RNA sequence: GUCUUCUCCUUGAGUUCCUUUCUGUCUGUUGGUGGCAAUUUGUGGAUUCACACGAGGAGAGAAUUCACAGAAAUAGUAUCAUUUACUUUCUGUCUAUGACUUUGCAGAGGGGCAUUUGGCUGUUCUGUGAGACAUUC
Numbered sequence: 001g002u003c004u005u006c007u008c009c010u011u012g013a014g015u016u017c018c019u020u021u022c023u024g025u026c027u028g029u030u031g032g033u034g035g036c037a038a039u040u041u042g043u044g045g046a047u048u049c050a051c052a053c054g055a056g057g058a059g060a061g062a063a064u065u066c067a068c069a070g071a072a073a074u075a076g077u078a079u080c081a082u083u084u085a086c087u088u089u090c091u092g093u094c095u096a097u098g099a100c101u102u103u104g105c106a107g108a109g110g111g112g113c114a115u116u117u118g119g120c121u122g123u124u125c126u127g128u129g130a131g132a133c134a135u136u137c
Base pairs, nucleotide, nucleotide: 003059004058005057006056007055008054014051015050016046017045018044023037024036025035026034065130066129067128068127069126070125087110088109089108090107091106092105
A member of the RNA family "Small nucleolar RNA SNORA75" from Carlito syrichta, 137 nucleotides long. U23 belongs to the H/ACA class of snoRNAs. snoRNAs bind a number of proteins (including dyskerin, Gar1p and Nop10p in the case of the H/ACA class) to form snoRNP complexes. This class are thought to guide the sites of modification of uridines to pseudouridines by forming direct base pairing interactions with substrate RNAs. Targets include ribosomal and spliceosomal RNAs as well as the Trypanosoma spliced leader RNA (SL RNA) as possibly other, still unknown cellular RNAs. Gene Ontology terms of the family: nucleolus and RNA processing. It is annotated as an H/ACA-box small nucleolar RNA.